[Rfam]
RNA sequence: AUAUUCUGGUUUUCUAUUCAGAUCGUAUAAAUCUUCCACCUUUUACUAAAGGGUUCCAUGAAGAAAGAGAACAUGGAUGAGUUUUGUUCUAAUGUUUUGAGGCCCCCAAAUUCAAUUUUUGGU
Numbered sequence: 001a002u003a004u005u006c007u008g009g010u011u012u013u014c015u016a017u018u019c020a021g022a023u024c025g026u027a028u029a030a031a032u033c034u035u036c037c038a039c040c041u042u043u044u045a046c047u048a049a050a051g052g053g054u055u056c057c058a059u060g061a062a063g064a065a066a067g068a069g070a071a072c073a074u075g076g077a078u079g080a081g082u083u084u085u086g087u088u089c090u091a092a093u094g095u096u097u098u099g100a101g102g103c104c105c106c107c108a109a110a111u112u113c114a115a116u117u118u119u120u121g122g123u
Stems, first nucleotide, its partner, number of pairs: 003082004009072006017062004029055002032052004106122005
A member of the RNA family "U5 spliceosomal RNA" from Naja naja, 123 nucleotides long.